[Rfam]
RNA sequence: AGCUGGUGUGAUGGUAUUGGGUUAUCGGAACUUAUUAACAUUAGUAUCACUACACUUGGUGUUAAUAUAUAACACCCCAUUGCUAAAUUUGACUGUCUUUAA
Numbered sequence: 001a002g003c004u005g006g007u008g009u010g011a012u013g014g015u016a017u018u019g020g021g022u023u024a025u026c027g028g029a030a031c032u033u034a035u036u037a038a039c040a041u042u043a044g045u046a047u048c049a050c051u052a053c054a055c056u057u058g059g060u061g062u063u064a065a066u067a068u069a070u071a072a073c074a075c076c077c078c079a080u081u082g083c084u085a086a087a088u089u090u091g092a093c094u095g096u097c098u099u100u101a102a
Stems, first nucleotide, its partner, number of pairs: 001098002004095004010090002015085001016081001018079004033067003037063002